[Rfam]
Rfam assigns this 65-nucleotide sequence from Halicephalobus sp. NKZ332 to the family "mir-72 microRNA precursor family". Its family is annotated with RISC complex and miRNA-mediated post-transcriptional gene silencing in the Gene Ontology.
RNA sequence: ACAAGGCAAGAUGUUGGCAUAGCUGAGUUUUCUUCGAUUUCAGCCAUGCUACAUUAGGCCACGUC
Numbered sequence: 001a002c003a004a005g006g007c008a009a010g011a012u013g014u015u016g017g018c019a020u021a022g023c024u025g026a027g028u029u030u031u032c033u034u035c036g037a038u039u040u041c042a043g044c045c046a047u048g049c050u051a052c053a054u055u056a057g058g059c060c061a062c063g064u065c
Base pairs, nucleotide, nucleotide: 005060006059007058011054012053013052014051016050017049018048022044023043024042025041026040

The family's consensus secondary structure was predicted with RNAalifold. Clan: mir-31 microRNA precursor family. The match comes from Rfam's covariance-model search (68 bits). NCBI's taxonomy places the organism under Eukaryota, Opisthokonta, Rhabditida, Panagrolaimidae, Halicephalobus.